Rfam assigns this 93-nucleotide sequence from Persicirhabdus sediminis to the family "Selenocysteine transfer RNA".
NCBI's taxonomy places the organism under Bacteria, Pseudomonadati, Verrucomicrobiia, Verrucomicrobiales, Persicirhabdus.
Gene Ontology term of the family: triplet codon-amino acid adaptor activity.
A search with the family's covariance model found it, with a score of 52 bits.
RNA sequence: CGGAGAGUGAUGUGUGCCUGGUGGUCGCCGCGGUUUUCAAAACCGUUGAAGGGCUGUAAUGGUCUUUGCUUGGUUCGAUUCCUUGCCUCUCCG
Numbered sequence: 001c002g003g004a005g006a007g008u009g010a011u012g013u014g015u016g017c018c019u020g021g022u023g024g025u026c027g028c029c030g031c032g033g034u035u036u037u038c039a040a041a042a043c044c045g046u047u048g049a050a051g052g053g054c055u056g057u058a059a060u061g062g063u064c065u066u067u068g069c070u071u072g073g074u075u076c077g078a079u080u081c082c083u084u085g086c087c088u089c090u091c092c093g
Stems, first nucleotide, its partner, number of pairs: 001093007012028003016025003030046005049067005072082002

The family's consensus secondary structure is taken from published work.